Rfam assigns this 58-nucleotide RNA sequence to the family "Hepatitis C virus stem-loop SL8001 RNA". About the family: Even though Hepatitis C virus (HCV) SL8001 is not required for overall replication, conformational changes in this motif tune the initial rate of replication. Pairs were carried over by alignment from the consensus structure, which was predicted with RNAfold.

[Rfam]
RNA sequence: UUGGACAGGAAGGCCAUUAACCACAUCAACUCCGUGUGGGAGGACUUACUGUCAGACA
Numbered sequence: 001u002u003g004g005a006c007a008g009g010a011a012g013g014c015c016a017u018u019a020a021c022c023a024c025a026u027c028a029a030c031u032c033c034g035u036g037u038g039g040g041a042g043g044a045c046u047u048a049c050u051g052u053c054a055g056a057c058a
Stems, first nucleotide, its partner, number of pairs: 004053005010047003014043002021039006